Shown here is a 90-nucleotide RNA from Actibacterium atlanticum, a member of the family "Glycine riboswitch aptamer". The pairing is the family consensus, mapped onto this sequence. Rfam's curators write: This family represents the bacterial glycine riboswitch. A search with the family's covariance model found it, with a score of 62 bits. The organism belongs to Actibacterium, within Bacteria.
[Rfam]
RNA sequence: GGCACCGCGUUGGGAGAAUCUGGCCCAGUGCCGGUGCCGAAGGAGCAACCGCCCCGGUAAACUCUCAGGCCCCAGGACCGGCGCGGCAAA
Numbered sequence: 001g002g003c004a005c006c007g008c009g010u011u012g013g014g015a016g017a018a019u020c021u022g023g024c025c026c027a028g029u030g031c032c033g034g035u036g037c038c039g040a041a042g043g044a045g046c047a048a049c050c051g052c053c054c055c056g057g058u059a060a061a062c063u064c065u066c067a068g069g070c071c072c073c074a075g076g077a078c079c080g081g082c083g084c085g086g087c088a089a090a
Stems, first nucleotide, its partner, number of pairs: 006085008020034004036070003039066002043064003049057002